RNA sequence: AUACUUACCUUAAGAUGCCAAGGGAGAUCAAGAAGUCCUUUUGGCCAAAUAUGCGCUUUCAGUUUAGAGGGAUGCUAGGCAUUUAAAUAUGUUAUAUGACAUAUUAUUUAAUUGAUGUAAGUUCCCUGGUCACUCGCACAUACGACUGCGAAAGGUGUGUUUGCUGACGUCUCGUUCUUUUACUUUUUCAAUAGUGGUAUUAUGUUAAUUUCUUCGGAAGUACACCAUUUUACCAAUGUUGUCAAGUCCUUUUUUCCUUCUGCCUGGAGAAGUAUGGUACCGAGUACAAAUCGGUAUUAAGGGAGUUGAGGUGUAUCAAAAACUGCAAUUGAAUUUGAGGAUGAUUUGUUUUCGAUAGUAGUUAUUUACAUCAUGAUAGUUACUGAUUAAAAUCUUGACUUUCUGUUUCGAUUUUUAAGGUAGAGUAUUUUAUUAUGACUAAAUGAUUACAUAUUGUUGUUUUCAGAGUGUCACUAUUUGACAAUUCGAUAUUCAGUUGUGUUUCCUCGGAAGGUUUUUGUUAUAUCUUGAUAGAGACGGGUGGAUCUUAUAAUUUUUGAUUUAAUCU
Numbered sequence: 001a002u003a004c005u006u007a008c009c010u011u012a013a014g015a016u017g018c019c020a021a022g023g024g025a026g027a028u029c030a031a032g033a034a035g036u037c038c039u040u041u042u043g044g045c046c047a048a049a050u051a052u053g054c055g056c057u058u059u060c061a062g063u064u065u066a067g068a069g070g071g072a073u074g075c076u077a078g079g080c081a082u083u084u085a086a087a088u089a090u091g092u093u094a095u096a097u098g099a100c101a102u103a104u105u106a107u108u109u110a111a112u113u114g115a116u117g118u119a120a121g122u123u124c125c126c127u128g129g130u131c132a133c134u135c136g137c138a139c140a141u142a143c144g145a146c147u148g149c150g151a152a153a154g155g156u157g158u159g160u161u162u163g164c165u166g167a168c169g170u171c172u173c174g175u176u177c178u179u180u181u182a183c184u185u186u187u188u189c190a191a192u193a194g195u196g197g198u199a200u201u202a203u204g205u206u207a208a209u210u211u212c213u214u215c216g217g218a219a220g221u222a223c224a225c226c227a228u229u230u231u232a233c234c235a236a237u238g239u240u241g242u243c244a245a246g247u248c249c250u251u252u253u254u255u256c257c258u259u260c261u262g263c264c265u266g267g268a269g270a271a272g273u274a275u276g277g278u279a280c281c282g283a284g285u286a287c288a289a290a291u292c293g294g295u296a297u298u299a300a301g302g303g304a305g306u307u308g309a310g311g312u313g314u315a316u317c318a319a320a321a322a323c324u325g326c327a328a329u330u331g332a333a334u335u336u337g338a339g340g341a342u343g344a345u346u347u348g349u350u351u352u353c354g355a356u357a358g359u360a361g362u363u364a365u366u367u368a369c370a371u372c373a374u375g376a377u378a379g380u381u382a383c384u385g386a387u388u389a390a391a392a393u394c395u396u397g398a399c400u401u402u403c404u405g406u407u408u409c410g411a412u413u414u415u416u417a418a419g420g421u422a423g424a425g426u427a428u429u430u431u432a433u434u435a436u437g438a439c440u441a442a443a444u445g446a447u448u449a450c451a452u453a454u455u456g457u458u459g460u461u462u463u464c465a466g467a468g469u470g471u472c473a474c475u476a477u478u479u480g481a482c483a484a485u486u487c488g489a490u491a492u493u494c495a496g497u498u499g500u501g502u503u504u505c506c507u508c509g510g511a512a513g514g515u516u517u518u519u520g521u522u523a524u525a526u527c528u529u530g531a532u533a534g535a536g537a538c539g540g541g542u543g544g545a546u547c548u549u550a551u552a553a554u555u556u557u558u559g560a561u562u563u564a565a566u567c568u
Base pairs, nucleotide, nucleotide: 010553011552012551013548014547015546017045018044019043020042021041022039023038024037025036046163047162048161049160050159051158052157053156054155056154057153058152059151060150073144074143168539169538170537171536172535173534176304177303178302179301180300181299182247183246184245185244188241193237195235196234197233208221209220210219211218212217257272258271259270260269261268277297278296279295280294281293282292283291
RNA: Yeast U1 spliceosomal RNA